[Rfam]
RNA sequence: UUCAUGGGGAUCGCGAUCUCCCCAUGAGGCGACAGCCAAAGCUCGCGUUCCGUCACUGUUACACAAGGAACGCUUAUG
Numbered sequence: 001u002u003c004a005u006g007g008g009g010a011u012c013g014c015g016a017u018c019u020c021c022c023c024a025u026g027a028g029g030c031g032a033c034a035g036c037c038a039a040a041g042c043u044c045g046c047g048u049u050c051c052g053u054c055a056c057u058g059u060u061a062c063a064c065a066a067g068g069a070a071c072g073c074u075u076a077u078g
Stems, first nucleotide, its partner, number of pairs: 005024006045073006